Overview
Rfam assigns this 163-nucleotide RNA sequence from Eubacterium sp. CAG:146 to the family "FMN riboswitch aptamer (RFN element)". NCBI's taxonomy places the organism under Bacteria, Bacillati, Clostridia, Eubacteriaceae, Eubacterium. Pairs were carried over by alignment from the consensus structure, which is taken from published work. Gene Ontology term of the family: FMN binding.
RNA sequence: CAGAAUCUUCGGGGAUGGGUGUAAUUCCCUACCGGCGGUAUUUGUUUCAGAUGAAGCAGCUAUUUAUGAGCGAACGAAUCUGGUAACAUAAGCCCGCGAGCCAUUGGCAUGAUUCGGUGAGAGUCCGAAGCCGACAGUACAGUCUGGAUGAGAGAAGAAUGAG
Numbered sequence: 001c002a003g004a005a006u007c008u009u010c011g012g013g014g015a016u017g018g019g020u021g022u023a024a025u026u027c028c029c030u031a032c033c034g035g036c037g038g039u040a041u042u043u044g045u046u047u048c049a050g051a052u053g054a055a056g057c058a059g060c061u062a063u064u065u066a067u068g069a070g071c072g073a074a075c076g077a078a079u080c081u082g083g084u085a086a087c088a089u090a091a092g093c094c095c096g097c098g099a100g101c102c103a104u105u106g107g108c109a110u111g112a113u114u115c116g117g118u119g120a121g122a123g124u125c126c127g128a129a130g131c132c133g134a135c136a137g138u139a140c141a142g143u144c145u146g147g148a149u150g151a152g153a154g155a156a157g158a159a160u161g162a163g
Base pairs, nucleotide, nucleotide: 004160006158007157008156009155010154017029018028019027031143032142033133034132035097036096037095038094102107113129114128115127116126117125135146136145137144